The record is a 243-nucleotide RNA sequence from Leptolyngbyaceae cyanobacterium M65_K2018_010, which matches "Group I catalytic intron" in Rfam.
[Rfam]
RNA sequence: CUACGGACUUAGACAACUGAGCCUUAGUCGAGAAAUUGGCUAAGUGAAUGCUCUCAAACUCAGGGAAACCUAACUCCCAGGAAUACCUAAGGGGCUUCCCCUGACGCAGCUCCAGGCAUCCUAGGGAUAUGGCAAUCCUGAGCCAAGCCAGUUAACCGCUUAGCUGGAAGGUGCAGAGGCCCGACGGGAGCUACCCUAACGUGCAGCCGAGGGUAAAGGGAGGGUCCAAUUCUCAAAACCUGG
Numbered sequence: 001c002u003a004c005g006g007a008c009u010u011a012g013a014c015a016a017c018u019g020a021g022c023c024u025u026a027g028u029c030g031a032g033a034a035a036u037u038g039g040c041u042a043a044g045u046g047a048a049u050g051c052u053c054u055c056a057a058a059c060u061c062a063g064g065g066a067a068a069c070c071u072a073a074c075u076c077c078c079a080g081g082a083a084u085a086c087c088u089a090a091g092g093g094g095c096u097u098c099c100c101c102u103g104a105c106g107c108a109g110c111u112c113c114a115g116g117c118a119u120c121c122u123a124g125g126g127a128u129a130u131g132g133c134a135a136u137c138c139u140g141a142g143c144c145a146a147g148c149c150a151g152u153u154a155a156c157c158g159c160u161u162a163g164c165u166g167g168a169a170g171g172u173g174c175a176g177a178g179g180c181c182c183g184a185c186g187g188g189a190g191c192u193a194c195c196c197u198a199a200c201g202u203g204c205a206g207c208c209g210a211g212g213g214u215a216a217a218g219g220g221a222g223g224g225u226c227c228a229a230u231u232c233u234c235a236a237a238a239c240c241u242g243g
Stems, first nucleotide, its partner, number of pairs: 005024002008021005028039003050191004055186001060141006069132002073128001142172002149166002154161002176227001178226005194213004233243003

Gene Ontology term of the family: Group I intron splicing.